[Rfam]
RNA sequence: UCUGGGUGGUGUAGCGGCUGCCUGUAACCCGAGCGGGAGUAAGAGAGAUGGAAGUCGGAGCUCUUGCAGAGGACCACUGGGAUCAUGUCGAAGGCACGUCCACUUGAAGCGUGGAGUCUCUGAUCUGGGCUCCUCCGCAGAAGUGCGAGGAGUCUGGGGAGAUGAUGCGGAAGGCACAGCGUGAGGCGGGUGACCGAGCAGCGAUCACUUCCCGCCCUGCGCAGUCGAGGGACAGCGUGCUUGAAUGCUUGCCAGCGAUCAUCCCAUGUGAGCAGCUUCCUGCGACCUCUCUC
Numbered sequence: 001u002c003u004g005g006g007u008g009g010u011g012u013a014g015c016g017g018c019u020g021c022c023u024g025u026a027a028c029c030c031g032a033g034c035g036g037g038a039g040u041a042a043g044a045g046a047g048a049u050g051g052a053a054g055u056c057g058g059a060g061c062u063c064u065u066g067c068a069g070a071g072g073a074c075c076a077c078u079g080g081g082a083u084c085a086u087g088u089c090g091a092a093g094g095c096a097c098g099u100c101c102a103c104u105u106g107a108a109g110c111g112u113g114g115a116g117u118c119u120c121u122g123a124u125c126u127g128g129g130c131u132c133c134u135c136c137g138c139a140g141a142a143g144u145g146c147g148a149g150g151a152g153u154c155u156g157g158g159g160a161g162a163u164g165a166u167g168c169g170g171a172a173g174g175c176a177c178a179g180c181g182u183g184a185g186g187c188g189g190g191u192g193a194c195c196g197a198g199c200a201g202c203g204a205u206c207a208c209u210u211c212c213c214g215c216c217c218u219g220c221g222c223a224g225u226c227g228a229g230g231g232a233c234a235g236c237g238u239g240c241u242u243g244a245a246u247g248c249u250u251g252c253c254a255g256c257g258a259u260c261a262u263c264c265c266a267u268g269u270g271a272g273c274a275g276c277u278u279c280c281u282g283c284g285a286c287c288u289c290u291c292u293c
Base pairs, nucleotide, nucleotide: 002039003038004023005022006021007020008019009018010017028037029036030035043293044292045291046290047289048288050287051286054283055282057280058279059278060276061275062274064272065271067270068269070267072260073259075257077255078254079253081252086244092242093241094240095239096238097237098236099235100231101230103229104228105227106226107225109222110221111220112219113218114217116215117214120161121160124158125157126156127155128154129153130152131151132150133149134148135147137146138145139144169212170211171210172209173208178205180203181202182201187196188195189194
The family of this 293-nucleotide RNA sequence from Marchantia polymorpha is "Plant signal recognition particle RNA". Pairs were carried over by alignment from the consensus structure, which is taken from published work. Rfam 15.1 lists 4,988 matches to the family in 266 species. Its Rfam clan is "SRP clan". Gene Ontology terms of the family: SRP-dependent cotranslational protein targeting to membrane, signal sequence recognition and signal recognition particle, endoplasmic reticulum targeting.